[Rfam]
RNA sequence: ACGACCUUACUUGAACAGGAUCUGUUCUAUAGGAUCGUACUUCUGAAUCCUUGUGUUCUAAGGAGACAGGACCCAAAAUCUGGUGGAUGACUCAUGGCCGCUUGACCAGAGCGUGAUUAAUGGCUCUGUGGUUCAGUUCGUCUGGUUCACAGAUCCGCAGAGGAUCGUUCUCAGCUGGUUUGAACCGGCUGCGAUGGUCAAGCGGUUGUCUGACAGAUU
Numbered sequence: 001a002c003g004a005c006c007u008u009a010c011u012u013g014a015a016c017a018g019g020a021u022c023u024g025u026u027c028u029a030u031a032g033g034a035u036c037g038u039a040c041u042u043c044u045g046a047a048u049c050c051u052u053g054u055g056u057u058c059u060a061a062g063g064a065g066a067c068a069g070g071a072c073c074c075a076a077a078a079u080c081u082g083g084u085g086g087a088u089g090a091c092u093c094a095u096g097g098c099c100g101c102u103u104g105a106c107c108a109g110a111g112c113g114u115g116a117u118u119a120a121u122g123g124c125u126c127u128g129u130g131g132u133u134c135a136g137u138u139c140g141u142c143u144g145g146u147u148c149a150c151a152g153a154u155c156c157g158c159a160g161a162g163g164a165u166c167g168u169u170c171u172c173a174g175c176u177g178g179u180u181u182g183a184a185c186c187g188g189c190u191g192c193g194a195u196g197g198u199c200a201a202g203c204g205g206u207u208g209u210c211u212g213a214c215a216g217a218u219u
Base pairs, nucleotide, nucleotide: 001038002037003035005033006032007031013027014026015025016024017023018022043069044068045067048064049063050062051061052060053059078218079217080216081215082214097206098205099204100203101202102201103200104199105198106197107196108195110169111168112167113166121157122156123155125153126152127151128150129149130148131147133145134144135143136142172191173190174189175188176187177186178185179184
Dot-bracket structure: (((.(((.....((((((...))))))...))).).))....(((..((((((.....))))))..)))........(((((..............((((((((((((.((((.......(((.(((((((.((((.....)))).))))))).)))........))))..((((((((....))))))))...)))))))))))).......))))).